[Rfam]
RNA sequence: GGUGGAUGGUGUGCACAGUGUAGUCUGUGUUAUGUGCUGUUGCGGGACUGUGUUUUACAGCCUCCGCAGCAGUGCUCAUGCCACACCUGCAGCCAUAGACCAACUGGAGAUCAUAGUACUGGCCCUUGACGUCUCAUUGACAUUUUACCAUUGGUCGGCCUCCAUACUCUCCUACAAUC
Numbered sequence: 001g002g003u004g005g006a007u008g009g010u011g012u013g014c015a016c017a018g019u020g021u022a023g024u025c026u027g028u029g030u031u032a033u034g035u036g037c038u039g040u041u042g043c044g045g046g047a048c049u050g051u052g053u054u055u056u057a058c059a060g061c062c063u064c065c066g067c068a069g070c071a072g073u074g075c076u077c078a079u080g081c082c083a084c085a086c087c088u089g090c091a092g093c094c095a096u097a098g099a100c101c102a103a104c105u106g107g108a109g110a111u112c113a114u115a116g117u118a119c120u121g122g123c124c125c126u127u128g129a130c131g132u133c134u135c136a137u138u139g140a141c142a143u144u145u146u147a148c149c150a151u152u153g154g155u156c157g158g159c160c161u162c163c164a165u166a167c168u169c170u171c172c173u174a175c176a177a178u179c
Base pairs, nucleotide, nucleotide: 013090014089028083029082032079033078034077035074036073037072038071039070040069042067043066044064045063046062049059050058051057106172107171108170109169110168119158120157121156122155123154124153127150128149131141132140133139
RNA: Small nucleolar RNA SNORA23